[Rfam]
RNA sequence: UUAAUAAGUCAGGGGUGCUUUGAUUUUCAAGGCUGAGAUUAUACCCUUCUAACCUGUUCGAUAAUGCGAGCGUAGGAAGACGGAAGAUUAUAUAC
Numbered sequence: 001u002u003a004a005u006a007a008g009u010c011a012g013g014g015g016u017g018c019u020u021u022g023a024u025u026u027u028c029a030a031g032g033c034u035g036a037g038a039u040u041a042u043a044c045c046c047u048u049c050u051a052a053c054c055u056g057u058u059c060g061a062u063a064a065u066g067c068g069a070g071c072g073u074a075g076g077a078a079g080a081c082g083g084a085a086g087a088u089u090a091u092a093u094a095c
Base pairs, nucleotide, nucleotide: 008081009080010079011047012046013045014044016041017033018032019031020030021029053076054075055074056073057070058069059068060067